[Rfam]
RNA sequence: CUUACGGUGCUUAUUGGCAGUCUGUCCACCUCCAUCCCUUUCUCAUGGCACCAAGAGCAUCGGAAGAAAGAUAUGGAGGUGGGCAGCCUGCCAACUGAGCUCCGUAGG
Numbered sequence: 001c002u003u004a005c006g007g008u009g010c011u012u013a014u015u016g017g018c019a020g021u022c023u024g025u026c027c028a029c030c031u032c033c034a035u036c037c038c039u040u041u042c043u044c045a046u047g048g049c050a051c052c053a054a055g056a057g058c059a060u061c062g063g064a065a066g067a068a069a070g071a072u073a074u075g076g077a078g079g080u081g082g083g084c085a086g087c088c089u090g091c092c093a094a095c096u097g098a099g100c101u102c103c104g105u106a107g108g
Stems, first nucleotide, its partner, number of pairs: 011098001014094006023085013

A member of the RNA family "MIR394 microRNA precursor family" from Ensete ventricosum, 108 nucleotides long. The literature on the family includes a 2004 paper in Mol Cell by Jones-Rhoades and Bartel, "Computational identification of plant microRNAs and their targets, including a stress-induced miRNA". Taxonomically the source falls in Ensete (Eukaryota, Viridiplantae, Mesangiospermae, Liliopsida). A search with the family's covariance model found it, with a score of 71 bits.